RNA sequence: GGCGACCCACACGGGAGUGCACGCCAAGUGCGCUGAGAGGACGGCUGGCGCCGUCGACCGUACGAACCUGACCGGAUCAUGCCGGCGUAGGGAGUGAAAUAGAUGAGUAC
Numbered sequence: 001g002g003c004g005a006c007c008c009a010c011a012c013g014g015g016a017g018u019g020c021a022c023g024c025c026a027a028g029u030g031c032g033c034u035g036a037g038a039g040g041a042c043g044g045c046u047g048g049c050g051c052c053g054u055c056g057a058c059c060g061u062a063c064g065a066a067c068c069u070g071a072c073c074g075g076a077u078c079a080u081g082c083c084g085g086c087g088u089a090g091g092g093a094g095u096g097a098a099a100u101a102g103a104u105g106a107g108u109a110c
Base pairs, nucleotide, nucleotide: 008096009095010094011061012060013059014058017033018032019031020030021029040055041054042053043052044051067091068090069089070088072085073084074083075082
RNA: TPP riboswitch aptamer (THI element)